[Rfam]
RNA: MIR398 microRNA precursor family
Organism: Camellia sinensis
RNA sequence: GCAUACCCCAGAGGUGUGAACAUGAGAACACACACUGUGAUUUUGAGUUUGGUUGCUUUUAAAUCUCAGUCUCUUUCUCUUUUUCUUUCUCUUUCUCAUUCUCAAUAUCACAAUGUGUGUUCUCAGGUCACCCCUUUGGGGCACUU
Numbered sequence: 001g002c003a004u005a006c007c008c009c010a011g012a013g014g015u016g017u018g019a020a021c022a023u024g025a026g027a028a029c030a031c032a033c034a035c036u037g038u039g040a041u042u043u044u045g046a047g048u049u050u051g052g053u054u055g056c057u058u059u060u061a062a063a064u065c066u067c068a069g070u071c072u073c074u075u076u077c078u079c080u081u082u083u084u085c086u087u088u089c090u091c092u093u094u095c096u097c098a099u100u101c102u103c104a105a106u107a108u109c110a111c112a113a114u115g116u117g118u119g120u121u122c123u124c125a126g127g128u129c130a131c132c133c134c135u136u137u138g139g140g141g142c143a144c145u146u
Base pairs, nucleotide, nucleotide: 007140008139011136012135013134014133016131017130018129019128024124025123026122027121028120029119030118031117032116033115